Overview
The record is a 221-nucleotide RNA sequence from Himantopus himantopus, which matches "Small nucleolar RNA SNORD17" in Rfam. A search with the family's covariance model found it, with a score of 99 bits. The literature on the family includes a 2001 paper in EMBO J by Huttenhofer et al., "RNomics: an experimental approach that identifies 201 candidates for novel, small, non-messenger RNAs in mouse". Rfam's curators write: The snoRNA HBI-43 belongs to the C/D family of snoRNAs, guiding 2'O-ribose methylation at position U3797 of the 28S rRNA. Pseudouridylation in position U3797 is predicted to be guided by the H/ACA snoRNA ACA48. Pairs were carried over by alignment from the consensus structure, which was predicted with RNAalifold. The organism belongs to Himantopus, within Eukaryota. Its family is annotated with nucleolus and RNA processing in the Gene Ontology.
RNA sequence: AAGUUUAUCCAUUCUCUGAGUGCAGUGGUGCUGCCCUCCUGCAGCACCCUGAUUCCUGUUCUAGGGUCUGGGUGCUGUGCAGCCUCCAGAGACCCUCCAGCCUCCCAGUGUCCUACUGGGGACUGCUGUGGUGUGUGGCUGGCUGCCUGCAGGAGUGAAGUGGUGCCGGCAGGGUUGGAGGCCCUCAUUGAGGGGCUCCAUCCCCACUGAGACGAGGGAUG
Numbered sequence: 001a002a003g004u005u006u007a008u009c010c011a012u013u014c015u016c017u018g019a020g021u022g023c024a025g026u027g028g029u030g031c032u033g034c035c036c037u038c039c040u041g042c043a044g045c046a047c048c049c050u051g052a053u054u055c056c057u058g059u060u061c062u063a064g065g066g067u068c069u070g071g072g073u074g075c076u077g078u079g080c081a082g083c084c085u086c087c088a089g090a091g092a093c094c095c096u097c098c099a100g101c102c103u104c105c106c107a108g109u110g111u112c113c114u115a116c117u118g119g120g121g122a123c124u125g126c127u128g129u130g131g132u133g134u135g136u137g138g139c140u141g142g143c144u145g146c147c148u149g150c151a152g153g154a155g156u157g158a159a160g161u162g163g164u165g166c167c168g169g170c171a172g173g174g175u176u177g178g179a180g181g182c183c184c185u186c187a188u189u190g191a192g193g194g195g196c197u198c199c200a201u202c203c204c205c206a207c208u209g210a211g212a213c214g215a216g217g218g219a220u221g
Stems, first nucleotide, its partner, number of pairs: 010218001012216003016211002020207002025170002028167001029165006036157001037154007045074005051068001054066004079146006092132002098125003102121001104120007172204003176200004183195002